[Rfam]
RNA sequence: GUUCGUCAUGGCGAUGGAGCUCGCCUCAAAUGCCUGUACGGCUAAUAGCUCCUACCAAAAU
Numbered sequence: 001g002u003u004c005g006u007c008a009u010g011g012c013g014a015u016g017g018a019g020c021u022c023g024c025c026u027c028a029a030a031u032g033c034c035u036g037u038a039c040g041g042c043u044a045a046u047a048g049c050u051c052c053u054a055c056c057a058a059a060a061u
Base pairs, nucleotide, nucleotide: 010025011024012023013022016052017051018050019049020048021047032042033041034040
Dot-bracket structure: .........[[[[..((((((]]]]......(((.....)))....)))))).........
The family of this 61-nucleotide sequence from Desulfofundulus thermobenzoicus is "Fluoride riboswitch aptamer (crcB RNA motif)". Lineage of the source: Bacteria > Bacillati > Bacillota > Peptococcaceae > Desulfofundulus. The match comes from Rfam's covariance-model search (48 bits).